[Rfam]
RNA sequence: CGGGGGUGCAUUGUAGUUGCAUUGCAUGUGUCAGACCGGAGUGCAAUGCCCCUGCCGUGCAGCCCGG
Numbered sequence: 001c002g003g004g005g006g007u008g009c010a011u012u013g014u015a016g017u018u019g020c021a022u023u024g025c026a027u028g029u030g031u032c033a034g035a036c037c038g039g040a041g042u043g044c045a046a047u048g049c050c051c052c053u054g055c056c057g058u059g060c061a062g063c064c065c066g067g
Stems, first nucleotide, its partner, number of pairs: 001067001003065002006063001007061005013055004019049001021047007

The family of this 67-nucleotide RNA sequence from Calypte anna is "mir-33 microRNA precursor family". Pairs were carried over by alignment from the consensus structure, which was predicted with PFOLD. The literature on the family includes a 2009 paper in BMC Genomics by Li et al., "Direct sequencing and expression analysis of a large number of miRNAs in Aedes aegypti and a multi-species survey of novel mosquito miRNAs". A search with the family's covariance model found it, with a score of 58 bits. Taxonomically the source falls in Calypte (Eukaryota, Sauria, Aves, Strisores). Its family is annotated with gene silencing by miRNA and RISC complex in the Gene Ontology.